[Rfam]
RNA: Ribosomal protein L10 leader
Organism: Effusibacillus lacus
RNA sequence: ACAAUUGAAAUCGACGAACCGUAGACAGCAGGUGUGCGAUUGCACUUAAUUCUUCCUGCCGAGGUUGUGAACGUGAUAGAUGCAAGUUAUGCAUGUUCAGAGUCCUCGUAUGUCUACGGGGACUCUUUUUGCUUGAAGU
Numbered sequence: 001a002c003a004a005u006u007g008a009a010a011u012c013g014a015c016g017a018a019c020c021g022u023a024g025a026c027a028g029c030a031g032g033u034g035u036g037c038g039a040u041u042g043c044a045c046u047u048a049a050u051u052c053u054u055c056c057u058g059c060c061g062a063g064g065u066u067g068u069g070a071a072c073g074u075g076a077u078a079g080a081u082g083c084a085a086g087u088u089a090u091g092c093a094u095g096u097u098c099a100g101a102g103u104c105c106u107c108g109u110a111u112g113u114c115u116a117c118g119g120g121g122a123c124u125c126u127u128u129u130u131g132c133u134u135g136a137a138g139u
Base pairs, nucleotide, nucleotide: 028059029058030057031056032055034045035044036043101124102123103122104121105120106119107118108117109116110115